[Rfam]
RNA: MIR2655 microRNA precursor family
RNA sequence: CUCAUAUGUAAUAAAAAGUCCGUUUGAGUCCCUUAACUUUAUUUAAAGUAUCAGUUUGGUCUUUUCUGUUAAUUUAAUUCAAAAAAACGUUAAGUUUAGGGAUCAAACUAAUACUAAUUAAAUAAGAUAAGGGACCAAACUAAUACUAAUUAAAUAAGUUAAUGGACCAAAAUUUAACUUUCUUUUUAAUUAAAUUAACAGAAAUGACCAAAUUGAUACUUUAAAUAAAGUUAAGAGACAUAAUCGGACUUUUUAUUACUUGUGCGA
Numbered sequence: 001c002u003c004a005u006a007u008g009u010a011a012u013a014a015a016a017a018g019u020c021c022g023u024u025u026g027a028g029u030c031c032c033u034u035a036a037c038u039u040u041a042u043u044u045a046a047a048g049u050a051u052c053a054g055u056u057u058g059g060u061c062u063u064u065u066c067u068g069u070u071a072a073u074u075u076a077a078u079u080c081a082a083a084a085a086a087a088c089g090u091u092a093a094g095u096u097u098a099g100g101g102a103u104c105a106a107a108c109u110a111a112u113a114c115u116a117a118u119u120a121a122a123u124a125a126g127a128u129a130a131g132g133g134a135c136c137a138a139a140c141u142a143a144u145a146c147u148a149a150u151u152a153a154a155u156a157a158g159u160u161a162a163u164g165g166a167c168c169a170a171a172a173u174u175u176a177a178c179u180u181u182c183u184u185u186u187u188a189a190u191u192a193a194a195u196u197a198a199c200a201g202a203a204a205u206g207a208c209c210a211a212a213u214u215g216a217u218a219c220u221u222u223a224a225a226u227a228a229a230g231u232u233a234a235g236a237g238a239c240a241u242a243a244u245c246g247g248a249c250u251u252u253u254u255a256u257u258a259c260u261u262g263u264g265c266g267a
Base pairs, nucleotide, nucleotide: 003264004263005262006261008259024243025242028239029238032235033234034233035232036231037230038229039228040227041226042225043224045222046221047220